[Rfam]
RNA: Small nucleolar RNA SNORA5
Organism: Menidia menidia
RNA sequence: UGCAGCCUCGUCAAAUUCAGUGCCUCCUUCUCCCUGGAUGCCACUGGCCAAAAUGGCUGCCACAGCAAAGUGUAGUUCAUGGGCCCCACUGUGCUCAAUAAUGGCCUCUGGGAAUAAAUAUGUACUGCACACAUUU
Numbered sequence: 001u002g003c004a005g006c007c008u009c010g011u012c013a014a015a016u017u018c019a020g021u022g023c024c025u026c027c028u029u030c031u032c033c034c035u036g037g038a039u040g041c042c043a044c045u046g047g048c049c050a051a052a053a054u055g056g057c058u059g060c061c062a063c064a065g066c067a068a069a070g071u072g073u074a075g076u077u078c079a080u081g082g083g084c085c086c087c088a089c090u091g092u093g094c095u096c097a098a099u100a101a102u103g104g105c106c107u108c109u110g111g112g113a114a115u116a117a118a119u120a121u122g123u124a125c126u127g128c129a130c131a132c133a134u135u136u
Stems, first nucleotide, its partner, number of pairs: 002060004018046005023040001025038003072128005077122001085112004